transfer-messenger RNA: a 399-nucleotide RNA sequence from Kaistella treverensis. A reference for the family is Williams and Bartel (1996), "Phylogenetic analysis of tmRNA secondary structure", RNA. Its family is annotated with RNA catabolic process in the Gene Ontology. Taxonomically the source falls in Kaistella (Bacteria, Pseudomonadati, Bacteroidota, Flavobacteriales). Rfam classes the family as a non-coding RNA gene.
RNA sequence: GGGGUUGACUGGUUUCGACAGCAAGAUCAAUGGGUAAGUAAGCAUGCAGAGAACCGUAGCGCGAUCUCUUUAAUCCCUUGCUACAAAAUUUUAACUGGCGACCAAGAGUUUGCUCUUGCUGCUUAAUCCGAAUCAUAGUAAGAUUUAGCGUUCUCCCGAAGACAGUACGGAGGCAAGAUAUCCCACAGAAGUUCUGUUUCGCGACGUCUGAUUUUGGGGUAUAGCAAUGCGGAAAUAAGGUUUUGGAGGCUUUGGCCAGAACUCGAAAAAAUUAGAAGCUAAGGUAAAAGUUGGGUGUCUGCUCUCUGCUUUUGCAUGAAAACCAAUAGCAGAAUAAGCAUGUAGAAACCUUAUGUGUUGCUUGUUUGGACGAGGGUUCGAAUCCCUCCAACUCCACAG
Numbered sequence: 001g002g003g004g005u006u007g008a009c010u011g012g013u014u015u016c017g018a019c020a021g022c023a024a025g026a027u028c029a030a031u032g033g034g035u036a037a038g039u040a041a042g043c044a045u046g047c048a049g050a051g052a053a054c055c056g057u058a059g060c061g062c063g064a065u066c067u068c069u070u071u072a073a074u075c076c077c078u079u080g081c082u083a084c085a086a087a088a089u090u091u092u093a094a095c096u097g098g099c100g101a102c103c104a105a106g107a108g109u110u111u112g113c114u115c116u117u118g119c120u121g122c123u124u125a126a127u128c129c130g131a132a133u134c135a136u137a138g139u140a141a142g143a144u145u146u147a148g149c150g151u152u153c154u155c156c157c158g159a160a161g162a163c164a165g166u167a168c169g170g171a172g173g174c175a176a177g178a179u180a181u182c183c184c185a186c187a188g189a190a191g192u193u194c195u196g197u198u199u200c201g202c203g204a205c206g207u208c209u210g211a212u213u214u215u216g217g218g219g220u221a222u223a224g225c226a227a228u229g230c231g232g233a234a235a236u237a238a239g240g241u242u243u244u245g246g247a248g249g250c251u252u253u254g255g256c257c258a259g260a261a262c263u264c265g266a267a268a269a270a271a272u273u274a275g276a277a278g279c280u281a282a283g284g285u286a287a288a289a290g291u292u293g294g295g296u297g298u299c300u301g302c303u304c305u306c307u308g309c310u311u312u313u314g315c316a317u318g319a320a321a322a323c324c325a326a327u328a329g330c331a332g333a334a335u336a337a338g339c340a341u342g343u344a345g346a347a348a349c350c351u352u353a354u355g356u357g358u359u360g361c362u363u364g365u366u367u368g369g370a371c372g373a374g375g376g377u378u379c380g381a382a383u384c385c386c387u388c389c390a391a392c393u394c395c396a397c398a399g
Stems, first nucleotide, its partner, number of pairs: 001395007019368002021365005030358003034354005043342005048069005056084006114143008179221006186210004191205003197233003240262007248280006282317001284315008293306003298333006372388005